[Rfam]
RNA sequence: UGAGUGUUAUGAUGUUGGCGGUGUGCAUGAGUUGAUAAUCAAAAGAUGAGAAAACUUUUUUCCUCUGAUCCUUGAUUAUUGAGUAGCAUUGCUUAGUCUAGCUCUGUCCGCUUAUCUUUUAGGAUAAG
Number, nucleotide and partner (000 for none) at each position: 001u000002g104003a103004g102005u101006g000007u000008u000009a000010u000011g098012a097013u096014g000015u000016u000017g093018g092019c091020g090021g089022u088023g087024u086025g000026c000027a000028u000029g000030a000031g000032u000033u000034g000035a000036u000037a000038a000039u000040c000041a000042a000043a000044a000045g000046a000047u000048g000049a000050g000051a000052a000053a000054a000055c000056u000057u000058u000059u000060u000061u000062c000063c000064u000065c000066u000067g000068a000069u000070c000071c000072u000073u000074g000075a000076u000077u000078a000079u000080u000081g000082a000083g000084u000085a000086g024087c023088a022089u021090u020091g019092c018093u017094u000095a000096g013097u012098c011099u000100a000101g005102c004103u003104c002105u000106g000107u000108c000109c000110g000111c128112u127113u126114a125115u124116c123117u000118u000119u000120u000121a000122g000123g116124a115125u114126a113127a112128g111